[Rfam]
RNA sequence: AAAUAUUGUCAAGCGCCAGAACAGUUAUUAUAGUGAUAUUUUAUUUUAAUUGUUGACGAGGAUUGGGAUUAUCGAAAAUUCGGCGGGUGUCCCAAAGGCAUGUGACUGUCUAAAAAUAUAUAACAAAGAAGACUUGAUUUAAAAAAAGUUCCGGUCU
Numbered sequence: 001a002a003a004u005a006u007u008g009u010c011a012a013g014c015g016c017c018a019g020a021a022c023a024g025u026u027a028u029u030a031u032a033g034u035g036a037u038a039u040u041u042u043a044u045u046u047u048a049a050u051u052g053u054u055g056a057c058g059a060g061g062a063u064u065g066g067g068a069u070u071a072u073c074g075a076a077a078a079u080u081c082g083g084c085g086g087g088u089g090u091c092c093c094a095a096a097g098g099c100a101u102g103u104g105a106c107u108g109u110c111u112a113a114a115a116a117u118a119u120a121u122a123a124c125a126a127a128g129a130a131g132a133c134u135u136g137a138u139u140u141a142a143a144a145a146a147a148g149u150u151c152c153g154g155u156c157u
Base pairs, nucleotide, nucleotide: 020054021053022052023051024050025049026048027047063095064094065093066092067091072083073082074081075080096111097110098109099108100107122139123138126135127134128133
glmS glucosamine-6-phosphate activated ribozyme aptamer: a 157-nucleotide RNA sequence from Peptostreptococcaceae bacterium AS15. Pairs were carried over by alignment from the consensus structure, which is taken from published work. Taxonomically the source falls in Peptostreptococcaceae (Bacteria, Bacillota, Clostridia, Peptostreptococcales). A search with the family's covariance model found it, with a score of 71 bits.